[Rfam]
RNA sequence: GUCUCCGUGGUCCAGUGGUUACGACGUUCGGCUGUUACGACAUACACAUGUAAAUGUGCAUGCAGACUACCGAGAUAUCGGCGGUUCGAUCCCGCCCGGGGACG
Numbered sequence: 001g002u003c004u005c006c007g008u009g010g011u012c013c014a015g016u017g018g019u020u021a022c023g024a025c026g027u028u029c030g031g032c033u034g035u036u037a038c039g040a041c042a043u044a045c046a047c048a049u050g051u052a053a054a055u056g057u058g059c060a061u062g063c064a065g066a067c068u069a070c071c072g073a074g075a076u077a078u079c080g081g082c083g084g085u086u087c088g089a090u091c092c093c094g095c096c097c098g099g100g101g102a103c104g
Stems, first nucleotide, its partner, number of pairs: 001103007010025003027074005080096005
RNA: tRNA
Organism: Talaromyces marneffei